Shown here is a 107-nucleotide RNA from Pseudolabrys sp. Root1462, a member of the family "SAM-I/IV (S-adenosyl methionine) riboswitch aptamer". The family is grouped with related families in Rfam's "SAM clan". Taxonomically the source falls in Pseudolabrys (Bacteria, Pseudomonadota, Alphaproteobacteria, Xanthobacteraceae). The match comes from Rfam's covariance-model search (57 bits).
RNA sequence: GGCCAACAUCAAGAGUUGGGCAUCGCCCGACGCCAACCUGCUUCCCGAGCAAGGUGGCGCUCCCCGAAAGGGAGGAUGUGGCCGAACCGGCAACUAAACGGGCUCAG
Numbered sequence: 001g002g003c004c005a006a007c008a009u010c011a012a013g014a015g016u017u018g019g020g021c022a023u024c025g026c027c028c029g030a031c032g033c034c035a036a037c038c039u040g041c042u043u044c045c046c047g048a049g050c051a052a053g054g055u056g057g058c059g060c061u062c063c064c065c066g067a068a069a070g071g072g073a074g075g076a077u078g079u080g081g082c083c084g085a086a087c088c089g090g091c092a093a094c095u096a097a098a099c100g101g102g103c104u105c106a107g
Base pairs, nucleotide, nucleotide: 006079007078008077009076010075015031017030018028019027020026021025032058033057034056037054038053039052040050041049042048045102046101081091082090083089084088